[Rfam]
RNA sequence: CAUCUGUCAUGGAUAGUCCAGUGGAAGGGCGGCCGCUAGUUGGUGACCCUGUUUAGGUAAUUGCCAACAGGAAAGGUGCCUGGUUCGAAUCCUGGAGUUGCGGCUUUACUCGUGUGAGUAAUCCACGAUGCUAAAACGCAUUAAGCAAUGGAAAUGACACUUGAGGGAAGCAAUUCUGCAGAGAUAUUUCCACUCUAGGAUGGCGUCACCAGAUAACACCUUCCUGUGACAGGGAAUACCAAUUGUUUGGUGGCACAACCACUACUCUU
Numbered sequence: 001c002a003u004c005u006g007u008c009a010u011g012g013a014u015a016g017u018c019c020a021g022u023g024g025a026a027g028g029g030c031g032g033c034c035g036c037u038a039g040u041u042g043g044u045g046a047c048c049c050u051g052u053u054u055a056g057g058u059a060a061u062u063g064c065c066a067a068c069a070g071g072a073a074a075g076g077u078g079c080c081u082g083g084u085u086c087g088a089a090u091c092c093u094g095g096a097g098u099u100g101c102g103g104c105u106u107u108a109c110u111c112g113u114g115u116g117a118g119u120a121a122u123c124c125a126c127g128a129u130g131c132u133a134a135a136a137c138g139c140a141u142u143a144a145g146c147a148a149u150g151g152a153a154a155u156g157a158c159a160c161u162u163g164a165g166g167g168a169a170g171c172a173a174u175u176c177u178g179c180a181g182a183g184a185u186a187u188u189u190c191c192a193c194u195c196u197a198g199g200a201u202g203g204c205g206u207c208a209c210c211a212g213a214u215a216a217c218a219c220c221u222u223c224c225u226g227u228g229a230c231a232g233g234g235a236a237u238a239c240c241a242a243u244u245g246u247u248u249g250g251u252g253g254c255a256c257a258a259c260c261a262c263u264a265c266u267c268u269u
Stems, first nucleotide, its partner, number of pairs: 002014003020263005029254002032251003035247001037245001040242004047234007056065003067227005073222006080212005086205002089201009099140001101138002105135004110128005116123002141145001149192007160183003167176003
Dot-bracket structure: .(((.......))).....(((((....((.((((.(..((((...(((((((..(((....))).(((((.((((((.(((((.((.(((((((((.(.((..((((.(((((.((....)))))))...)))).)).)(...)...(((((((....(((....(((....)))....)))..))))))))))))))))..))..)))))....))))))))))))))))))....))))..).).))).))....)))))......
Rfam assigns this 269-nucleotide sequence from Elaphomyces granulatus to the family "Fungal signal recognition particle RNA".
A search with the family's covariance model found it, with a score of 163 bits.
On this family, see Rosenblad et al., RNA Biol 2009: "Kinship in the SRP RNA family".
The family is grouped with related families in Rfam's "SRP clan".
By type it is a non-coding RNA gene.